Description
Shown here is a 107-nucleotide RNA from Edaphobacter acidisoli, a member of the family "SAM riboswitch aptamer (S box leader)". The source organism's lineage runs through Bacteria, Acidobacteriota, Terriglobia, Terriglobales and Edaphobacter. It scores 72 bits against the family's covariance model.

[Rfam]
RNA sequence: AUUUCAUGAAGAGUGGUUGAGGGACGAGCCCUUUGACGCCACGACAACCGGACAGAACAAAGGCGUACCGGUGUCAACUCUCUCCUGUUAGACAGGGAACAUGAGAU
Number, nucleotide and partner (000 for none) at each position: 001a107002u106003u105004u104005c103006a102007u101008g100009a000010a000011g000012a000013g042014u041015g040016g039017u038018u000019g000020a000021g031022g030023g029024a000025c000026g082027a081028g080029c023030c022031c021032u000033u000034u000035g000036a000037c000038g017039c016040c015041a014042c013043g075044a074045c073046a072047a000048c071049c070050g068051g000052a066053c065054a000055g000056a000057a000058c000059a000060a000061a000062g000063g000064c000065g053066u052067a000068c050069c000070g049071g048072u046073g045074u044075c043076a000077a000078c000079u099080c028081u027082c026083u000084c096085c095086u094087g093088u092089u000090a000091g000092a088093c087094a086095g085096g084097g000098a000099a079100c008101a007102u006103g005104a004105g003106a002107u001